[Rfam]
RNA sequence: CCAAGAAAUAGAGGUUGCGGUGGGCAACGAAAACUGGGGAGUGCCGUAUCAUGUUGAACCAGUUGUAAGUGCCACCGCCGAAAUGUUGCACGAUAUUCGGAUCGUGCGCAUUGGGCCAUGGGUGCAUAACCCAUGGACUGUCGAAGCACUCGCUUCGGGGCGCUAUGAUUCUG
Numbered sequence: 001c002c003a004a005g006a007a008a009u010a011g012a013g014g015u016u017g018c019g020g021u022g023g024g025c026a027a028c029g030a031a032a033a034c035u036g037g038g039g040a041g042u043g044c045c046g047u048a049u050c051a052u053g054u055u056g057a058a059c060c061a062g063u064u065g066u067a068a069g070u071g072c073c074a075c076c077g078c079c080g081a082a083a084u085g086u087u088g089c090a091c092g093a094u095a096u097u098c099g100g101a102u103c104g105u106g107c108g109c110a111u112u113g114g115g116c117c118a119u120g121g122g123u124g125c126a127u128a129a130c131c132c133a134u135g136g137a138c139u140g141u142c143g144a145a146g147c148a149c150u151c152g153c154u155u156c157g158g159g160g161c162g163c164u165a166u167g168a169u170u171c172u173g
Stems, first nucleotide, its partner, number of pairs: 008166004017078006024072003032064006082112005088107006113139002116136008141158007
RNA: Lysine riboswitch aptamer
Organism: Lacticaseibacillus paracasei